Rfam assigns this 133-nucleotide sequence from Ichthyophthirius multifiliis to the family "Tetrahymena snoRNA TtnuHACA23". The literature on the family includes a 2012 paper in Nucleic Acids Res by Andersen and Nielsen, "Experimental identification and analysis of macronuclear non-coding RNAs from the ciliate Tetrahymena thermophila". Its family is annotated with nucleolus and RNA processing in the Gene Ontology. By type it is an H/ACA-box small nucleolar RNA.
[Rfam]
RNA sequence: AGCUUUGUUCGCUUCGAUAGUUUCAAGUAUAUUAUCUUGAGUUAUCACCUAAAACAAAGCAAAAUUAAAAUAAUGUUUUUCGAACAUCAAGUUACACAAAAUUGUAAUUUGAUUUUGCAAAAUUCAUACAAAC
Dot-bracket structure: .((((((((......(.((((.(((((........))))))))).)......)))))))).............(((.....(((.(((((((((((......)))))))))))))))))..............
Numbered sequence: 001a002g003c004u005u006u007g008u009u010c011g012c013u014u015c016g017a018u019a020g021u022u023u024c025a026a027g028u029a030u031a032u033u034a035u036c037u038u039g040a041g042u043u044a045u046c047a048c049c050u051a052a053a054a055c056a057a058a059g060c061a062a063a064a065u066u067a068a069a070a071u072a073a074u075g076u077u078u079u080u081c082g083a084a085c086a087u088c089a090a091g092u093u094a095c096a097c098a099a100a101a102u103u104g105u106a107a108u109u110u111g112a113u114u115u116u117g118c119a120a121a122a123u124u125c126a127u128a129c130a131a132a133c
Stems, first nucleotide, its partner, number of pairs: 002060008016046001018044004023040005074119003082116003086113011